[Rfam]
A member of the RNA family "Small nucleolar RNA Z107/R87" from Triticum aestivum, 57 nucleotides long. It is annotated as a C/D-box small nucleolar RNA. It scores 57 bits against the family's covariance model. The family has 9 seed sequences and 783 matches in Rfam 15.1. Pairs were carried over by alignment from the consensus structure, which was predicted with RNAfold.

RNA sequence: GAUGGCAGUGACGAUUCCAAAUAUUCAAGCUCAACAGACCAAAUCACAGGAGCCAUC
Numbered sequence: 001g002a003u004g005g006c007a008g009u010g011a012c013g014a015u016u017c018c019a020a021a022u023a024u025u026c027a028a029g030c031u032c033a034a035c036a037g038a039c040c041a042a043a044u045c046a047c048a049g050g051a052g053c054c055a056u057c
Stems, first nucleotide, its partner, number of pairs: 001057006
Dot-bracket structure: ((((((.............................................))))))